[Rfam]
RNA sequence: UGUAACGCUGAAGAGGAGCGAAAGCUAGGCAGGACUCGGGGGCAGUACCCGACGCCUCCACCAUGAGCACAUUGGGUCAAGGUGUAGUCCUUCGGGAUCAAGAGAUAAUUUCAAAGACCCUUGUAUAAACUGUAUCCCAGUGUGCUUUUGAUGGGGGCGAACUAGGAUCGACUGUUAGUAAAUAGCGAAUUGGAGUUACAGGGCUGACCGCCUCAUAGGUCAAACACUACAAAUGCAAACGAUAACUUUGCACAUGAUAACUUCGCUCUCGCAGCGUAG
Numbered sequence: 001u002g003u004a005a006c007g008c009u010g011a012a013g014a015g016g017a018g019c020g021a022a023a024g025c026u027a028g029g030c031a032g033g034a035c036u037c038g039g040g041g042g043c044a045g046u047a048c049c050c051g052a053c054g055c056c057u058c059c060a061c062c063a064u065g066a067g068c069a070c071a072u073u074g075g076g077u078c079a080a081g082g083u084g085u086a087g088u089c090c091u092u093c094g095g096g097a098u099c100a101a102g103a104g105a106u107a108a109u110u111u112c113a114a115a116g117a118c119c120c121u122u123g124u125a126u127a128a129a130c131u132g133u134a135u136c137c138c139a140g141u142g143u144g145c146u147u148u149u150g151a152u153g154g155g156g157g158c159g160a161a162c163u164a165g166g167a168u169c170g171a172c173u174g175u176u177a178g179u180a181a182a183u184a185g186c187g188a189a190u191u192g193g194a195g196u197u198a199c200a201g202g203g204c205u206g207a208c209c210g211c212c213u214c215a216u217a218g219g220u221c222a223a224a225c226a227c228u229a230c231a232a233a234u235g236c237a238a239a240c241g242a243u244a245a246c247u248u249u250g251c252a253c254a255u256g257a258u259a260a261c262u263u264c265g266c267u268c269u270c271g272c273a274g275c276g277u278a279g
Stems, first nucleotide, its partner, number of pairs: 001200005026177003030174003036052005053159007201212002
The record is a 279-nucleotide RNA, which matches "permuted transfer-messenger RNA" in Rfam.
The sequence is in the family's curated seed alignment.
Rfam's curators write: Bacterial tmRNA, also known as 10Sa RNA or SsrA, is named for its dual tRNA and mRNA-like properties. Its role is to liberate the mRNA from a stalled ribosome. To accomplish this part of the tmRNA is used as a reading frame that ends in a translation stop signal. The broken mRNA is replaced in the ribosome by the tmRNA and translation of the tmRNA leads to addition of a proteolysis tag to the incomplete protein enabling recognition by a protease.